Shown here is a 79-nucleotide sequence from Vibrio mimicus, a member of the family "Vibrio ToxT activated RNA TarB".
[Rfam]
RNA sequence: AUGAGCGGUUACCUCAUGUAUUGUUACAAGCUGACGAUUAAGCACUUUUUGGCGCACUGCGGUGCGCCUUUUUUUAAAA
Dot-bracket structure: (((((.......)))))(((....)))..(((........))).......(((((((....)))))))...........
Lineage of the source: Bacteria > Pseudomonadati > Pseudomonadota > Vibrionaceae > Vibrio mimicus. For this family Rfam cites "Non-coding sRNAs regulate virulence in the bacterial pathogen Vibrio cholerae" (Bardill and Hammer, RNA Biol, 2012).